[Rfam]
RNA sequence: GGAAGCCCGUCAGGAAAGGUAUAGCCAGCCACCUGAAGCGAGUCUUGGAGCCUAUCAGGCAACUGAUAUGGUUUAAGCGUAGACAGUGAGGUAACGGGCCGAAAGCCAGAGGCUGAAGGAAUUGAGCCCUGAAAUUUGUCAUGAGACGGGAGGGUCGAUGCUGUGACCCAUGCAGAAGACAACACGACGAAAUCGAUAUUGGCAAGAUUAUCGUCGCCUCCCCGGGGUCGGAGACCU
Numbered sequence: 001g002g003a004a005g006c007c008c009g010u011c012a013g014g015a016a017a018g019g020u021a022u023a024g025c026c027a028g029c030c031a032c033c034u035g036a037a038g039c040g041a042g043u044c045u046u047g048g049a050g051c052c053u054a055u056c057a058g059g060c061a062a063c064u065g066a067u068a069u070g071g072u073u074u075a076a077g078c079g080u081a082g083a084c085a086g087u088g089a090g091g092u093a094a095c096g097g098g099c100c101g102a103a104a105g106c107c108a109g110a111g112g113c114u115g116a117a118g119g120a121a122u123u124g125a126g127c128c129c130u131g132a133a134a135u136u137u138g139u140c141a142u143g144a145g146a147c148g149g150g151a152g153g154g155u156c157g158a159u160g161c162u163g164u165g166a167c168c169c170a171u172g173c174a175g176a177a178g179a180c181a182a183c184a185c186g187a188c189g190a191a192a193u194c195g196a197u198a199u200u201g202g203c204a205a206g207a208u209u210a211u212c213g214u215c216g217c218c219u220c221c222c223c224g225g226g227g228u229c230g231g232a233g234a235c236c237u
Base pairs, nucleotide, nucleotide: 010036011035012034013033014032018030019029020028022205024203025202038087039086042084043083044082045081046079047078048074049073050072051071052070053068054067055066056065057064058063123231124229126228127227128226129225130224131223148222149221150220151219152218153217154180155179156178159174160173161172185216186215187214188213189212190211191209192208193207194206
The family of this 237-nucleotide RNA from Alicyclobacillaceae bacterium I2511 is "Group II catalytic intron D1-D4-6". The organism belongs to Alicyclobacillaceae, within Bacteria. Gene Ontology term of the family: Group II intron splicing. Group II introns are found in rRNA, tRNA and mRNA of organelles in fungi, plants and protists, and also in mRNA in bacteria.